RNA sequence: AACAAGAGUAGAAGCGGUCAGGAGCAAGACUCCGGGACAUUGCUCUUUCU
Numbered sequence: 001a002a003c004a005a006g007a008g009u010a011g012a013a014g015c016g017g018u019c020a021g022g023a024g025c026a027a028g029a030c031u032c033c034g035g036g037a038c039a040u041u042g043c044u045c046u047u048u049c050u
Stems, first nucleotide, its partner, number of pairs: 005046006015035001018037002021033004

Shown here is a 50-nucleotide RNA sequence from Hydrocarboniclastica marina, a member of the family "Xanthine riboswitch aptamer (NMT1 RNA)". On this family, see Yu and Breaker, RNA 2020: "A bacterial riboswitch class senses xanthine and uric acid to regulate genes associated with purine oxidation".